[Rfam]
RNA sequence: AUACGUCUUCGGGCGGGGUGCGAUUCCCCACCGGCGGUAGGGUCCGAGAGGGCCGAGCCCGCGAGCGAGGAUGGGGCGAGCGCCCUGUCCGAGCAGACAUGGUCCGAUGCCAUGGCCGACGGUAUAGUCCGGAUGAAAGAAGAUGUGC
Numbered sequence: 001a002u003a004c005g006u007c008u009u010c011g012g013g014c015g016g017g018g019u020g021c022g023a024u025u026c027c028c029c030a031c032c033g034g035c036g037g038u039a040g041g042g043u044c045c046g047a048g049a050g051g052g053c054c055g056a057g058c059c060c061g062c063g064a065g066c067g068a069g070g071a072u073g074g075g076g077c078g079a080g081c082g083c084c085c086u087g088u089c090c091g092a093g094c095a096g097a098c099a100u101g102g103u104c105c106g107a108u109g110c111c112a113u114g115g116c117c118g119a120c121g122g123u124a125u126a127g128u129c130c131g132g133a134u135g136a137a138a139g140a141a142g143a144u145g146u147g148c
Base pairs, nucleotide, nucleotide: 003146004145005144006143007142008141009140010139016028017027018026030128031127032118033117034062035061036060037059057116058115065094066093098114099113100112101111102110120131121130122129
The family of this 148-nucleotide sequence from Pseudoduganella armeniaca is "FMN riboswitch aptamer (RFN element)". Gene Ontology term of the family: FMN binding.